[Rfam]
Rfam assigns this 449-nucleotide part of an RNA from Sulfodiicoccus acidiphilus to the family "Archaeal large subunit ribosomal RNA". Pairs were carried over by alignment from the consensus structure, which is taken from published work.
RNA sequence: CCCUCCGAAAUGCGUCUUAGCGCAGCCUCCCCUGAGGUUACUCGUGGGGUAGAGUUACUUAUUGGGGCUUCGGAUCGAAAGGUCCGGACUCCCAGUAAAACUCCGAACCUGCGAGCGCCGUAGAAGGGGGGAGUGGGUCACUCGGCGUAAGGUUGGGUGGCAAGAGGGGAACAACCCAGACUUGGGUUAAGGCCCCAAAGUGCCGGCUAAGUGCGUACAAGGGCGUCCGUAGCCACAGACAGCGGGAAGGUGGGCCCAGCAGCAGCCAUCCUCUAAGGAGUGCGUAAUAGCUCACCCGCCGAGGCUACGGGCCCUGCAGACUGGUCGGGGCUCAAGCCGGCCGCCGAUACCCAAGGGUGGAGCUCCUUUGGAGCCCCAUCGGUAGGAGGGCGCUACGGCGGAGCAGAAGGUGGGCCGUGAGGUCCACUGGAUCCGUCGCAGGUGCAGAU
Numbered sequence: 001c002c003c004u005c006c007g008a009a010a011u012g013c014g015u016c017u018u019a020g021c022g023c024a025g026c027c028u029c030c031c032c033u034g035a036g037g038u039u040a041c042u043c044g045u046g047g048g049g050u051a052g053a054g055u056u057a058c059u060u061a062u063u064g065g066g067g068c069u070u071c072g073g074a075u076c077g078a079a080a081g082g083u084c085c086g087g088a089c090u091c092c093c094a095g096u097a098a099a100a101c102u103c104c105g106a107a108c109c110u111g112c113g114a115g116c117g118c119c120g121u122a123g124a125a126g127g128g129g130g131g132a133g134u135g136g137g138u139c140a141c142u143c144g145g146c147g148u149a150a151g152g153u154u155g156g157g158u159g160g161c162a163a164g165a166g167g168g169g170a171a172c173a174a175c176c177c178a179g180a181c182u183u184g185g186g187u188u189a190a191g192g193c194c195c196c197a198a199a200g201u202g203c204c205g206g207c208u209a210a211g212u213g214c215g216u217a218c219a220a221g222g223g224c225g226u227c228c229g230u231a232g233c234c235a236c237a238g239a240c241a242g243c244g245g246g247a248a249g250g251u252g253g254g255c256c257c258a259g260c261a262g263c264a265g266c267c268a269u270c271c272u273c274u275a276a277g278g279a280g281u282g283c284g285u286a287a288u289a290g291c292u293c294a295c296c297c298g299c300c301g302a303g304g305c306u307a308c309g310g311g312c313c314c315u316g317c318a319g320a321c322u323g324g325u326c327g328g329g330g331c332u333c334a335a336g337c338c339g340g341c342c343g344c345c346g347a348u349a350c351c352c353a354a355g356g357g358u359g360g361a362g363c364u365c366c367u368u369u370g371g372a373g374c375c376c377c378a379u380c381g382g383u384a385g386g387a388g389g390g391c392g393c394u395a396c397g398g399c400g401g402a403g404c405a406g407a408a409g410g411u412g413g414g415c416c417g418u419g420a421g422g423u424c425c426a427c428u429g430g431a432u433c434c435g436u437c438g439c440a441g442g443u444g445c446a447g448a449u
Stems, first nucleotide, its partner, number of pairs: 001390006011024005026133001027131006036119003041115007052104001053102002060097008069088001071086006137161009166177003181355007191345003200342001202341006221315003225312010242299005248272003253267003273277001278293001282291002356380002359377002362374002391444001393441002396438007409428008